[Rfam]
A member of the RNA family "mir-96 microRNA precursor family" from Salmo salar, 65 nucleotides long. A reference for the family is Houbaviy et al. (2003), "Embryonic stem cell-specific MicroRNAs", Dev Cell. The source organism's lineage runs through Eukaryota, Deuterostomia, Craniata, Euteleostomi and Salmo.

RNA sequence: UUUGGCACUAGCACAUUUUUGCUUCUGUAUAUAUCUGUUUGAGCAAUCAUGUGUAGUGCCAAUAU
Dot-bracket structure: .((((((((.((((((..((((((................))))))..))))))))))))))...
Numbered sequence: 001u002u003u004g005g006c007a008c009u010a011g012c013a014c015a016u017u018u019u020u021g022c023u024u025c026u027g028u029a030u031a032u033a034u035c036u037g038u039u040u041g042a043g044c045a046a047u048c049a050u051g052u053g054u055a056g057u058g059c060c061a062a063u064a065u
Stems, first nucleotide, its partner, number of pairs: 002062008011054006019046006